[Rfam]
The family of this 76-nucleotide RNA sequence from Anaerosacchariphilus hominis is "c-di-GMP-I riboswitch aptamer".
A search with the family's covariance model found it, with a score of 62 bits.
RNA sequence: UAAGAAAAUCGGCAAACCAGAUGAAAGUCUGGGACGCAAAGCUACAGGGCCUGUAAAAUGGCAGCCAGUUGCAUGA
Numbered sequence: 001u002a003a004g005a006a007a008a009u010c011g012g013c014a015a016a017c018c019a020g021a022u023g024a025a026a027g028u029c030u031g032g033g034a035c036g037c038a039a040a041g042c043u044a045c046a047g048g049g050c051c052u053g054u055a056a057a058a059u060g061g062c063a064g065c066c067a068g069u070u071g072c073a074u075g076a
Base pairs, nucleotide, nucleotide: 012037013036017032018031019030020029021028022027040070041069042068043067047066048065049062050061051060